[Rfam]
RNA sequence: CUACUGUGAUGAGUCUCUGAACUCUCUCUUACUGAAUCACUCUUUGAAGAAACCCCUUUACCAGAUUCUGAGUAGC
Number, nucleotide and partner (000 for none) at each position: 001c075002u074003a073004c072005u000006g000007u000008g000009a000010u000011g000012a000013g000014u000015c000016u000017c000018u000019g000020a000021a000022c000023u000024c000025u000026c000027u000028c000029u000030u000031a000032c000033u000034g000035a000036a000037u000038c000039a000040c000041u000042c000043u000044u000045u000046g000047a000048a000049g000050a000051a000052a000053c000054c000055c000056c000057u000058u000059u000060a000061c000062c000063a000064g000065a000066u000067u000068c000069u000070g000071a000072g004073u003074a002075g001076c000
RNA: Small nucleolar RNA SNORD26